The record is an 89-nucleotide sequence from Acinetobacter sp. CIP 102637, which matches "t44 RNA" in Rfam.

RNA sequence: CGAUGGGGCAAUAAAAUCCGCACAUAUAUCGUCACAUUACUCUGGGUGCCUAGCAAUAGGUGGAGAAUGCGGAUAUAUGGAGGCCUAAC
Numbered sequence: 001c002g003a004u005g006g007g008g009c010a011a012u013a014a015a016a017u018c019c020g021c022a023c024a025u026a027u028a029u030c031g032u033c034a035c036a037u038u039a040c041u042c043u044g045g046g047u048g049c050c051u052a053g054c055a056a057u058a059g060g061u062g063g064a065g066a067a068u069g070c071g072g073a074u075a076u077a078u079g080g081a082g083g084c085c086u087a088a089c
Base pairs, nucleotide, nucleotide: 023079024078025077026076027075028074029073030072035069036068037067038066040065041064042063043062048061049060050059051058052057
Pairs were carried over by alignment from the consensus structure, which was predicted with LocARNA. NCBI's taxonomy places the organism under Bacteria, Pseudomonadati, Moraxellales, Moraxellaceae, Acinetobacter. For this family Rfam cites "Transcriptome analysis of Escherichia coli using high-density oligonucleotide probe arrays" (Tjaden et al., Nucleic Acids Res, 2002). It is annotated as a small RNA.